RNA sequence: AGUUGUAUAGGCGAUGGAGUUCGCCGUAACCGCUGACUGACAGCUAAUGACUCCUACCGGACG
Dot-bracket structure: .........[[[[..((((((]]]]......((((.....))))....)))))).........
Fluoride riboswitch aptamer (crcB RNA motif): a 63-nucleotide sequence from Aneurinibacillus migulanus. The family's consensus secondary structure is taken from published work. The match comes from Rfam's covariance-model search (61 bits). Rfam links the family to the GO terms positive regulation of gene expression and response to fluoride. Taxonomically the source falls in Aneurinibacillus (Bacteria, Bacilli, Caryophanales, Paenibacillaceae).